[Rfam]
RNA sequence: GGGUUGCCUCCGCCGAGUCCGAUCUCCUCGGAGCCGGGGACCCACCAAGACCUUGGGGUGAAUCGGUCCCGUACGAAGUACGGGACUGUAGGGCAACCUUCCGGAUCAUCCGCCCGAACCCGACAGCUAACCCGGUAGGCGGUCUACGGAAGGAGU
Numbered sequence: 001g002g003g004u005u006g007c008c009u010c011c012g013c014c015g016a017g018u019c020c021g022a023u024c025u026c027c028u029c030g031g032a033g034c035c036g037g038g039g040a041c042c043c044a045c046c047a048a049g050a051c052c053u054u055g056g057g058g059u060g061a062a063u064c065g066g067u068c069c070c071g072u073a074c075g076a077a078g079u080a081c082g083g084g085a086c087u088g089u090a091g092g093g094c095a096a097c098c099u100u101c102c103g104g105a106u107c108a109u110c111c112g113c114c115c116g117a118a119c120c121c122g123a124c125a126g127c128u129a130a131c132c133c134g135g136u137a138g139g140c141g142g143u144c145u146a147c148g149g150a151a152g153g154a155g156u
Base pairs, nucleotide, nucleotide: 011141012140013139014138018032019031020030033136034135035134036133037132038131043055044054056121057120058119064088065087066086067085068084069083070082071081072080073079074078091115092114093113094112
Rfam assigns this 156-nucleotide sequence from Streptomyces sp. MZ04 to the family "c-di-AMP riboswitch aptamer (ydaO/yuaA leader)".